[Rfam]
DUF3085 RNA: a 63-nucleotide RNA sequence.
RNA sequence: CGGUAGCUGGUAGCACCGGACAUUGCGUCCAAGCCAGCAAGUUAUCAACUCAACCCUUCCGGG
Numbered sequence: 001c002g003g004u005a006g007c008u009g010g011u012a013g014c015a016c017c018g019g020a021c022a023u024u025g026c027g028u029c030c031a032a033g034c035c036a037g038c039a040a041g042u043u044a045u046c047a048a049c050u051c052a053a054c055c056c057u058u059c060c061g062g063g
Stems, first nucleotide, its partner, number of pairs: 001018004006038005019029003
Dot-bracket structure: [[[[.(((((....]]]](((.....)))....))))).........................
It is annotated as a cis-regulatory element. Pairs were carried over by alignment from the consensus structure, which is taken from published work.